[Rfam]
RNA: FMN riboswitch aptamer (RFN element)
Organism: Saccharopolyspora thermophila
RNA sequence: GUGCGCUCCGGGGCUCGGUGCAAGUCCGAACCGGCGGUGACAGUCCGCGAACCGGCUUCCUCGCGGGGGCCGGCCGAACCGGUGGAAUUCCGGUGCCGACGGUGAAAGUCCGGAUGGGAGGCAGCGCAC
Dot-bracket structure: ..(((((((......(((.......))).[[((((((.....[[))))...((..................))....(((((.......)))))]])).(((.....]]))).......)).)))))..
Numbered sequence: 001g002u003g004c005g006c007u008c009c010g011g012g013g014c015u016c017g018g019u020g021c022a023a024g025u026c027c028g029a030a031c032c033g034g035c036g037g038u039g040a041c042a043g044u045c046c047g048c049g050a051a052c053c054g055g056c057u058u059c060c061u062c063g064c065g066g067g068g069g070c071c072g073g074c075c076g077a078a079c080c081g082g083u084g085g086a087a088u089u090c091c092g093g094u095g096c097c098g099a100c101g102g103u104g105a106a107a108g109u110c111c112g113g114a115u116g117g118g119a120g121g122c123a124g125c126g127c128a129c
Stems, first nucleotide, its partner, number of pairs: 003127005008121002016028003030109002032098002034048004043096002052073002078094005100112003